[Rfam]
RNA sequence: CUUAUCACAUGAAGGGGCAAUGGGAAUAGGGCUUGACAAGGCGCAAGAGCAAGAGUCUGGACCUUCUACAUCUGGUCGUACUUUUGAGAAUGGG
Number, nucleotide and partner (000 for none) at each position: 001c094002u093003u092004a091005u090006c000007a000008c000009a000010u000011g000012a000013a000014g000015g000016g000017g000018c000019a000020a000021u000022g000023g000024g000025a000026a000027u000028a000029g000030g000031g000032c000033u000034u000035g000036a000037c000038a000039a000040g000041g000042c000043g000044c000045a000046a000047g000048a000049g000050c000051a000052a000053g000054a000055g000056u000057c000058u000059g000060g000061a000062c000063c000064u000065u000066c000067u000068a000069c000070a000071u000072c000073u000074g000075g000076u000077c000078g000079u000080a000081c000082u000083u000084u000085u000086g000087a000088g000089a000090a005091u004092g003093g002094g001